[Rfam]
RNA sequence: UUGCGAAUAUUCUCGCUGUCCUUAUAGUCCAGUGAUCAGGGCAGGCUAGACAUUCGCUAUAUUAAAACUAUGCAGUGUGUCCCCAGGACUAGCUUGUUUCCCCUAGUUCUGGUUCUAUAACUGCUAGUGACAGAA
Numbered sequence: 001u002u003g004c005g006a007a008u009a010u011u012c013u014c015g016c017u018g019u020c021c022u023u024a025u026a027g028u029c030c031a032g033u034g035a036u037c038a039g040g041g042c043a044g045g046c047u048a049g050a051c052a053u054u055c056g057c058u059a060u061a062u063u064a065a066a067a068c069u070a071u072g073c074a075g076u077g078u079g080u081c082c083c084c085a086g087g088a089c090u091a092g093c094u095u096g097u098u099u100c101c102c103c104u105a106g107u108u109c110u111g112g113u114u115c116u117a118u119a120a121c122u123g124c125u126a127g128u129g130a131c132a133g134a135a
Stems, first nucleotide, its partner, number of pairs: 003057003016044007024036002067128004072124002083112010
A member of the RNA family "Small nucleolar RNA SNORA72" from Sphenodon punctatus, 135 nucleotides long. A search with the family's covariance model found it, with a score of 123 bits. For this family Rfam cites "The family of box ACA small nucleolar RNAs is defined by an evolutionarily conserved secondary structure and ubiquitous sequence elements essential for RNA accumulation" (Ganot et al., Genes Dev, 1997). The family's consensus secondary structure was predicted with PFOLD. Rfam links the family to the GO terms nucleolus and RNA processing. Rfam describes the family as follows. U72 is a member of the H/ACA class of snoRNAs. The snoRNA gene is located in intron 4 of the ribosomal L30 protein gene in human, mouse and chicken.